Rfam assigns this 131-nucleotide sequence from Papaver nudicaule to the family "Small nucleolar RNA snoR77". Pairs were carried over by alignment from the consensus structure, which was predicted with WAR.
[Rfam]
RNA sequence: CGGCAGCCCCCUUGCGAAUUAAAAAUUAUGGUAAGGAGGGUGUUGUUCUACUCGGAAAUCGAUUCUUUGGCUCUUCAGAUUUGCUGAGAAACUUAUUUCUCUGAAGCUGGUCUAGUAAGCUUAAGUACAUU
Numbered sequence: 001c002g003g004c005a006g007c008c009c010c011c012u013u014g015c016g017a018a019u020u021a022a023a024a025a026u027u028a029u030g031g032u033a034a035g036g037a038g039g040g041u042g043u044u045g046u047u048c049u050a051c052u053c054g055g056a057a058a059u060c061g062a063u064u065c066u067u068u069g070g071c072u073c074u075u076c077a078g079a080u081u082u083g084c085u086g087a088g089a090a091a092c093u094u095a096u097u098u099c100u101c102u103g104a105a106g107c108u109g110g111u112c113u114a115g116u117a118a119g120c121u122u123a124a125g126u127a128c129a130u131u
Stems, first nucleotide, its partner, number of pairs: 002044004007040002010036006017029001065125003070120003077113005083107003088099003
Its family is annotated with nucleolus and RNA processing in the Gene Ontology.